[Rfam]
RNA: Bacillaceae-1 RNA
Organism: Kurthia sibirica
RNA sequence: CUUAGCAGAACAUCGACUAAAUUCCGCACGUCCUGUGCGAACGUCGAUGGCACUCACAUCCAG
Numbered sequence: 001c002u003u004a005g006c007a008g009a010a011c012a013u014c015g016a017c018u019a020a021a022u023u024c025c026g027c028a029c030g031u032c033c034u035g036u037g038c039g040a041a042c043g044u045c046g047a048u049g050g051c052a053c054u055c056a057c058a059u060c061c062a063g
Stems, first nucleotide, its partner, number of pairs: 011049007025039005057063001